This 108-nucleotide sequence from Caenorhabditis brenneri belongs to the Rfam family "SL2 RNA". The match comes from Rfam's covariance-model search (62 bits). Clan: SL clan. The base pairs follow the family's consensus structure, which is taken from published work. Rfam's curators write: This family represents SL2 RNA. SL2 RNA is involved in trans splicing in lower eukaryotes. Trans-splicing is a form of RNA processing. The acquisition of a spliced leader from a SL RNA is a intra-molecular reaction which precisely joins exons derived from separately transcribed RNAs. Approximately 25% of C. elegans genes are organised into polycistronic transcription units and the presence of SL2 on an mRNA is an indication the the gene is in an operon.
[Rfam]
RNA sequence: GGCCGUGACCCUUUAAUCAAGGUUAGCUGUCGUUUCGAACUCGCGAAAGAGUGUGUCGAAUAACUAAAUUUUUAGAAACGCUUCUUCGGGGUUAUCCGGAGAGGCAGA
Numbered sequence: 001g002g003c004c005g006u007g008a009c010c011c012u013u014u015a016a017u018c019a020a021g022g023u024u025a026g027c028u029g030u031c032g033u034u035u036c037g038a039a040c041u042c043g044c045g046a047a048a049g050a051g052u053g054u055g056u057c058g059a060a061u062a063a064c065u066a067a068a069u070u071u072u073u074a075g076a077a078a079c080g081c082u083u084c085u086u087c088g089g090g091g092u093u094a095u096c097c098g099g100a101g102a103g104g105c106a107g108a
Base pairs, nucleotide, nucleotide: 007034008033010029013026015024016023017022036058037057038056040053042051044049082106084104085103086102087101090097091096